[Rfam]
RNA sequence: CUUACCGCGAGGUAUAAUCUGAAGGAAGCUAGCGGCAAAAUUCCGAUCUGAGGAACAAGAAUAUUAUCAGGCGCAAUUGUUGGGAUAAACUUGCCAAACAAAGCAAAGUUUAAAUACUACACGGACAACGAAGUGUAAAUGAUACGGGUACAGGGAAUGAAAGCUAUUUAC
Numbered sequence: 001c002u003u004a005c006c007g008c009g010a011g012g013u014a015u016a017a018u019c020u021g022a023a024g025g026a027a028g029c030u031a032g033c034g035g036c037a038a039a040a041u042u043c044c045g046a047u048c049u050g051a052g053g054a055a056c057a058a059g060a061a062u063a064u065u066a067u068c069a070g071g072c073g074c075a076a077u078u079g080u081u082g083g084g085a086u087a088a089a090c091u092u093g094c095c096a097a098a099c100a101a102a103g104c105a106a107a108g109u110u111u112a113a114a115u116a117c118u119a120c121a122c123g124g125a126c127a128a129c130g131a132a133g134u135g136u137a138a139a140u141g142a143u144a145c146g147g148g149u150a151c152a153g154g155g156a157a158u159g160a161a162a163g164c165u166a167u168u169u170a171c
Stems, first nucleotide, its partner, number of pairs: 003014004028171001031168002035164002040158005046149005062144005071136003077131006083111004090103003

Group II catalytic intron D1-D4-3: a 171-nucleotide RNA sequence. The sequence is in the family's curated seed alignment.